This 79-nucleotide RNA from Bradyrhizobium sp. LMTR 3 belongs to the Rfam family "Makes More Granules Regulator RNA (mmgR)".
It scores 67 bits against the family's covariance model.
Pairs were carried over by alignment from the consensus structure.
Taxonomically the source falls in Bradyrhizobium (Bacteria, Pseudomonadota, Hyphomicrobiales, Nitrobacteraceae).
RNA sequence: GCAUCCUGCCCUCCUUGGGCGUUUCCUCCCUAGACUUCGGCCGCUUGUGGCAACGCAGGCGGCCUUUUCUUUAUCAGGU
Number, nucleotide and partner (000 for none) at each position: 001g000002c000003a000004u000005c000006c000007u000008g020009c019010c018011c017012u000013c000014c000015u000016u000017g011018g010019g009020c008021g000022u000023u000024u000025c000026c000027u000028c000029c000030c000031u000032a000033g000034a000035c000036u000037u000038c000039g064040g063041c062042c061043g060044c059045u058046u057047g056048u000049g000050g000051c000052a000053a000054c000055g000056c047057a046058g045059g044060c043061g042062g041063c040064c039065u000066u000067u000068u000069c000070u000071u000072u000073a000074u000075c000076a000077g000078g000079u000